[Rfam]
RNA sequence: CUGACCGACGCGUCCGGGUCAAUUGCGGACUGCAACACCCUAUCUCCCUUCCCGUCCCGCCGUCGAUGGUGGUCGAGAAGGGCGAACGCGUCACUGUCAG
Numbered sequence: 001c002u003g004a005c006c007g008a009c010g011c012g013u014c015c016g017g018g019u020c021a022a023u024u025g026c027g028g029a030c031u032g033c034a035a036c037a038c039c040c041u042a043u044c045u046c047c048c049u050u051c052c053c054g055u056c057c058c059g060c061c062g063u064c065g066a067u068g069g070u071g072g073u074c075g076a077g078a079a080g081g082g083c084g085a086a087c088g089c090g091u092c093a094c095u096g097u098c099a100g
Base pairs, nucleotide, nucleotide: 001100002099003098004097005096008091009090010089011088012087013086016040017039018038023035024034025033026032027031044084046082047081048080049078050077052075054073055072056071
Dot-bracket structure: (((((..((((((..(((....(((((...)))))..)))...(.(((((.(.(((..............))).).)).))).).))))))....)))))
This 100-nucleotide RNA sequence belongs to the Rfam family "L4-Archaeoglobi ribosomal protein leades". The literature on the family includes a 2020 paper in BMC Microbiol by Eckert and Weinberg, "Discovery of 20 novel ribosomal leader candidates in bacteria and archaea". Rfam classes the family as a cis-regulatory leader.